[Rfam]
RNA: DUF805b RNA
RNA sequence: AAGGAGUAAGCCGAAAAUCCUGCAACAGAGUAGGCA
Number, nucleotide and partner (000 for none) at each position: 001a000002a021003g020004g019005a018006g000007u000008a000009a000010g035011c034012c033013g000014a000015a000016a000017a000018u005019c004020c003021u002022g000023c000024a000025a000026c000027a000028g000029a000030g000031u000032a000033g012034g011035c010036a000